Source information
mir-31 microRNA precursor family: an 82-nucleotide RNA sequence from Laodelphax striatellus. The family is grouped with related families in Rfam's "mir-31 microRNA precursor family". Gene Ontology terms of the family: RISC complex and gene silencing by miRNA. For this family Rfam cites "The small RNA profile during Drosophila melanogaster development" (Aravin et al., Dev Cell, 2003). NCBI's taxonomy places the organism under Eukaryota, Pancrustacea, Allotriocarida, Dicondylia, Laodelphax. The match comes from Rfam's covariance-model search (54 bits).
RNA sequence: GAUAAAUGAAAAGACAAGAUGUUGUCAAACCAGUGUAUGUAUAAUUCAGUGGUUUGACAACAUCUUGUCUUUUCAUUUAUUA
Numbered sequence: 001g002a003u004a005a006a007u008g009a010a011a012a013g014a015c016a017a018g019a020u021g022u023u024g025u026c027a028a029a030c031c032a033g034u035g036u037a038u039g040u041a042u043a044a045u046u047c048a049g050u051g052g053u054u055u056g057a058c059a060a061c062a063u064c065u066u067g068u069c070u071u072u073u074c075a076u077u078u079a080u081u082a
Base pairs, nucleotide, nucleotide: 005077006076007075008074009073010072011071012070013069014068015067016066017065018064019063020062021061023059024058025057026056027055028054029053030052031051